[Rfam]
RNA: mir-242 microRNA precursor family
RNA sequence: UUAAGAAUAUUGCGUAGGCCUUUGCUUCGAAAGAAACACUUUACUGUUCGCAGCAAUCUCCUCCGCAAUAUUUUUUG
Number, nucleotide and partner (000 for none) at each position: 001u000002u000003a075004a074005g073006a072007a071008u070009a069010u068011u067012g066013c065014g064015u000016a062017g061018g060019c000020c000021u000022u056023u055024g054025c053026u052027u000028c050029g049030a048031a047032a000033g000034a000035a000036a000037c000038a000039c000040u000041u000042u000043a000044c000045u000046g000047u031048u030049c029050g028051c000052a026053g025054c024055a023056a022057u000058c000059u000060c018061c017062u016063c000064c014065g013066c012067a011068a010069u009070a008071u007072u006073u005074u004075u003076u000077g000